[Rfam]
RNA sequence: AGAUGCCAAAAUAAAAACACAGUUCUGGUUGGUAGUCCAGACCUACACUCACGUGUAGCAGUAACCUUCCCCCUUUGGGUCGUCCGUUUUUGGUAAGUAAAUA
Numbered sequence: 001a002g003a004u005g006c007c008a009a010a011a012u013a014a015a016a017a018c019a020c021a022g023u024u025c026u027g028g029u030u031g032g033u034a035g036u037c038c039a040g041a042c043c044u045a046c047a048c049u050c051a052c053g054u055g056u057a058g059c060a061g062u063a064a065c066c067u068u069c070c071c072c073c074u075u076u077g078g079g080u081c082g083u084c085c086g087u088u089u090u091u092g093g094u095a096a097g098u099a100a101a102u103a
Base pairs, nucleotide, nucleotide: 004095005094006093007092008091009090010089011088022042023041025040026039027038028037043058044057045056046055047054048053069079070078071077